[Rfam]
RNA sequence: UUCGUGACAAUCUUGCAUCUGGGGCUUACAGACAGGGUAUUAAUUACCAUUUUUUUGCCUCGGGAAGGUCUGAGUCAGGCUCUUAUGCUCUAGCCGGGCGUCUGUAUAUUUGCAGAGUGGGAGGACCAGAAAUAUGCAGGCAGGAUUCUAAGCCUAGGAUUGUUGAAAACAGGAGGUGAUGUUUUCUGUCUGUUGAAAUCUCCUGCGGCCAGCUAUUUUAGUGCGAUUUGCAAGCUGGUAAACAAUUACCAGAACUCAAUUCAGACUAGUCUGUCACGAA
Numbered sequence: 001u002u003c004g005u006g007a008c009a010a011u012c013u014u015g016c017a018u019c020u021g022g023g024g025c026u027u028a029c030a031g032a033c034a035g036g037g038u039a040u041u042a043a044u045u046a047c048c049a050u051u052u053u054u055u056u057g058c059c060u061c062g063g064g065a066a067g068g069u070c071u072g073a074g075u076c077a078g079g080c081u082c083u084u085a086u087g088c089u090c091u092a093g094c095c096g097g098g099c100g101u102c103u104g105u106a107u108a109u110u111u112g113c114a115g116a117g118u119g120g121g122a123g124g125a126c127c128a129g130a131a132a133u134a135u136g137c138a139g140g141c142a143g144g145a146u147u148c149u150a151a152g153c154c155u156a157g158g159a160u161u162g163u164u165g166a167a168a169a170c171a172g173g174a175g176g177u178g179a180u181g182u183u184u185u186c187u188g189u190c191u192g193u194u195g196a197a198a199u200c201u202c203c204u205g206c207g208g209c210c211a212g213c214u215a216u217u218u219u220a221g222u223g224c225g226a227u228u229u230g231c232a233a234g235c236u237g238g239u240a241a242a243c244a245a246u247u248a249c250c251a252g253a254a255c256u257c258a259a260u261u262c263a264g265a266c267u268a269g270u271c272u273g274u275c276a277c278g279a280a
Base pairs, nucleotide, nucleotide: 001280002279003278004277007274008273009272012234013233014232015231016230017229021061022060023059024058025057036048037047038046039045070264071263072262073261074260078210079209080208081207086100087099088098089097090096101116102115103114104113105112106111117206118205119204120203121202122201123200137192138191139190140189141188142187143186144185145184235252236251237250238249239248240247241246